[Rfam]
RNA sequence: AGUGUAAUAAGGUUUUCGUGGGUGGUGGCUCACCCCUUUAAUAGAAAGGGGGUGAUGCCUAUGACAGUUUACGAGUCAUUGAUUGUAAUGAUUUCGUUCGCAGCGCUUGUCGUUGCCAUUCUGUCAGAAAAAAAGUAACCACCCUGUUAGCCUAGCGAGCAUUUAGGUGGUCACCUUUUCCUAAUGUGAGCCGCCCCCUUGAAGGGCUGUUACACACAAGACCGUUUGGUGUACCAGCACCACUCGG
Numbered sequence: 001a002g003u004g005u006a007a008u009a010a011g012g013u014u015u016u017c018g019u020g021g022g023u024g025g026u027g028g029c030u031c032a033c034c035c036c037u038u039u040a041a042u043a044g045a046a047a048g049g050g051g052g053u054g055a056u057g058c059c060u061a062u063g064a065c066a067g068u069u070u071a072c073g074a075g076u077c078a079u080u081g082a083u084u085g086u087a088a089u090g091a092u093u094u095c096g097u098u099c100g101c102a103g104c105g106c107u108u109g110u111c112g113u114u115g116c117c118a119u120u121c122u123g124u125c126a127g128a129a130a131a132a133a134a135g136u137a138a139c140c141a142c143c144c145u146g147u148u149a150g151c152c153u154a155g156c157g158a159g160c161a162u163u164u165a166g167g168u169g170g171u172c173a174c175c176u177u178u179u180c181c182u183a184a185u186g187u188g189a190g191c192c193g194c195c196c197c198c199u200u201g202a203a204g205g206g207c208u209g210u211u212a213c214a215c216a217c218a219a220g221a222c223c224g225u226u227u228g229g230u231g232u233a234c235c236a237g238c239a240c241c242a243c244u245c246g247g
Stems, first nucleotide, its partner, number of pairs: 002215004007210001009208001011192005017146002020144005026137001030055003034051005063125005076091003100117001103114001157177002195206003222247003227242005

Overview: The record is a 247-nucleotide RNA sequence from Lentibacillus cibarius, which matches "BsrG" in Rfam. bsrE, bsrG and bsrH pair through intermolecular interactions with antisense sRNAs. They form type I toxin/antitoxin system that includes an mRNA encoding for a short, toxic peptide (bsrE, bsrG and bsrH) and an antitoxin that is comprised of an antisense RNA. bsrG encodes a 39-amino-acid toxin, and the 180 nucleotide antisense sRNA called SR4 acts as the antitoxin (they overlap by 123 nucleotides). SR4 interaction with the 3'UTR of bsrG RNA promotes bsrG degradation and inhibits its translation. BsrG interferes with cell envelope biosynthesis, causes membrane invaginations and delocalisation of the cell wall synthesis and initiates autolysis. bsrE RNA encodes 30 amino-acid toxin peptide. Its antitoxin gene, SR5 overlaps by 112 nucleotides at the 3' end of bsrE. SR5 also overlaps bsrG from nucleotide 163 to 52 (Rfam overlap check). The antitoxin SR5 promotes bsrE degradation but unlike SR4 it does not directly inhibits toxin mRNA translation. Rfam classes the family as a small RNA. The organism belongs to Lentibacillus, within Bacteria. On this family, see Irnov et al., Nucleic Acids Res 2010: "Identification of regulatory RNAs in Bacillus subtilis".